[Rfam]
This 66-nucleotide part of an RNA from Sphaerimonospora thailandensis belongs to the Rfam family "Bacterial large subunit ribosomal RNA". It scores 2652 bits against the family's covariance model.
RNA sequence: CGUGGGAGCGUAGGCCGGAGCUUUGGUUCUGGUCUGUGAUGUGACUGCGUGCCUUUUGAAGAAUGA
Numbered sequence: 001c002g003u004g005g006g007a008g009c010g011u012a013g014g015c016c017g018g019a020g021c022u023u024u025g026g027u028u029c030u031g032g033u034c035u036g037u038g039a040u041g042u043g044a045c046u047g048c049g050u051g052c053c054u055u056u057u058g059a060a061g062a063a064u065g066a
Base pairs, nucleotide, nucleotide: 002048003047004046005045008042009041010040011039052065054063